Overview
The record is an 84-nucleotide RNA sequence, which matches "skipping-rope RNA" in Rfam. Rfam classes the family as a small RNA. The base pairs follow the family's consensus structure, which is taken from published work.
RNA sequence: AAUUAUCGAGGAUAGAACAGGCAGCUAUCACUCCUACUUAUGUAGGUCUUAAAGAGAUGUGGACGUGCCAAUCCACCGAUAAUA
Number, nucleotide and partner (000 for none) at each position: 001a000002a083003u082004u081005a080006u079007c078008g077009a000010g000011g029012a028013u027014a026015g025016a000017a000018c000019a000020g069021g068022c067023a066024g000025c015026u014027a013028u012029c011030a000031c054032u000033c046034c045035u044036a043037c000038u000039u000040a000041u000042g000043u036044a035045g034046g033047u000048c000049u000050u000051a000052a000053a000054g031055a000056g000057a000058u000059g076060u075061g074062g073063a072064c000065g000066u023067g022068c021069c020070a000071a000072u063073c062074c061075a060076c059077c008078g007079a006080u005081a004082a003083u002084a000